[Rfam]
RNA sequence: UGGACCAAUCAUGAUGACUGGCUCAUAUGAGUUAUGAAUAACAAAUGAUAUCAAUCUAGAAUUCUGAGGUUAAC
Numbered sequence: 001u002g003g004a005c006c007a008a009u010c011a012u013g014a015u016g017a018c019u020g021g022c023u024c025a026u027a028u029g030a031g032u033u034a035u036g037a038a039u040a041a042c043a044a045a046u047g048a049u050a051u052c053a054a055u056c057u058a059g060a061a062u063u064c065u066g067a068g069g070u071u072a073a074c
Stems, first nucleotide, its partner, number of pairs: 003071004
RNA: Small nucleolar RNA SNORD113/SNORD114 family